[Rfam]
RNA sequence: UGACUACACUCUGGAGAGAUCGGCAGCAUCGGACGAUGCGUGGCCGGCGCCGAAGGGGCAAGACCGGCACCGCCUCCCUCCCCGGGCCGCGCCGGUUCAAACUCUCAGGCGAAAGGACAGAGACGGGCAU
Dot-bracket structure: ........(((((......((((....................)))).(((((..(((...(((((((......................)))))))....))))).))).......)))))........
Shown here is a 130-nucleotide sequence from Thermomonas carbonis, a member of the family "Glycine riboswitch aptamer". Rfam's curators write: This family represents the bacterial glycine riboswitch. Glycine riboswitches usually consist of two metabolite-binding aptamers domains with similar structures in tandem. The aptamers cooperatively bind glycine to regulate the expression of downstream genes. Gene Ontology term of the family: glycine biosynthetic process. NCBI's taxonomy places the organism under Bacteria, Pseudomonadati, Pseudomonadota, Lysobacteraceae, Thermomonas. The match comes from Rfam's covariance-model search (57 bits).